L4-Archaeoglobi ribosomal protein leades: a 100-nucleotide RNA from Halococcoides cellulosivorans. A search with the family's covariance model found it, with a score of 71 bits. For this family Rfam cites "Discovery of 20 novel ribosomal leader candidates in bacteria and archaea" (Eckert and Weinberg, BMC Microbiol, 2020). Pairs were carried over by alignment from the consensus structure, which is taken from published work.
RNA sequence: CUGAUGGGCGCGUCCGGGUCAAUUGCGGACUGCAACACCCGAUCUCCCUGCCCGUUCCGGGCGACCGGAGCGUUCGCAAGGGAGAGCGCGUCACCGUCAG
Numbered sequence: 001c002u003g004a005u006g007g008g009c010g011c012g013u014c015c016g017g018g019u020c021a022a023u024u025g026c027g028g029a030c031u032g033c034a035a036c037a038c039c040c041g042a043u044c045u046c047c048c049u050g051c052c053c054g055u056u057c058c059g060g061g062c063g064a065c066c067g068g069a070g071c072g073u074u075c076g077c078a079a080g081g082g083a084g085a086g087c088g089c090g091u092c093a094c095c096g097u098c099a100g
Stems, first nucleotide, its partner, number of pairs: 001100005008091006015041004023035005043085007052076001